[Rfam]
RNA sequence: GGCACGUGAUGUCUGUUCUCACGAUGGUCUUCAGAUGUCCACCAUGGACACUGCUGAGAAAGCCAAUUGGCAAAGCUGAUGCCAGCCA
Numbered sequence: 001g002g003c004a005c006g007u008g009a010u011g012u013c014u015g016u017u018c019u020c021a022c023g024a025u026g027g028u029c030u031u032c033a034g035a036u037g038u039c040c041a042c043c044a045u046g047g048a049c050a051c052u053g054c055u056g057a058g059a060a061a062g063c064c065a066a067u068u069g070g071c072a073a074a075g076c077u078g079a080u081g082c083c084a085g086c087c088a
Stems, first nucleotide, its partner, number of pairs: 001083004